This 142-nucleotide RNA sequence from Jaculus jaculus belongs to the Rfam family "Small nucleolar RNA SNORA14". Rfam classes the family as an H/ACA-box small nucleolar RNA. The source organism's lineage runs through Eukaryota, Euteleostomi, Eutheria, Myomorpha and Jaculus. ACA14 is a member of the H/ACA class of snoRNA that guide the sites of modification of uridines to pseudouridines.
RNA sequence: UUGCACGCUAAAAUUCUCUUGGUAGCUUCCUUCCACGUGCUUCCAAGUGAAUGCCAUGAGUGAACGCUAGAGAAACGGUGAGGGAACCCAAAGGGCUGUGCUUCUCCUAUGGCUCCUUCCUAUUUCACACUUGCGACAUACU
Numbered sequence: 001u002u003g004c005a006c007g008c009u010a011a012a013a014u015u016c017u018c019u020u021g022g023u024a025g026c027u028u029c030c031u032u033c034c035a036c037g038u039g040c041u042u043c044c045a046a047g048u049g050a051a052u053g054c055c056a057u058g059a060g061u062g063a064a065c066g067c068u069a070g071a072g073a074a075a076c077g078g079u080g081a082g083g084g085a086a087c088c089c090a091a092a093g094g095g096c097u098g099u100g101c102u103u104c105u106c107c108u109a110u111g112g113c114u115c116c117u118u119c120c121u122a123u124u125u126c127a128c129a130c131u132u133g134c135g136a137c138a139u140a141c142u
Base pairs, nucleotide, nucleotide: 003067004066008060009059011057018047019046020045021044022043024041025040026039071142072141078134079133080132081131082130092121093120094119095118098115100113101112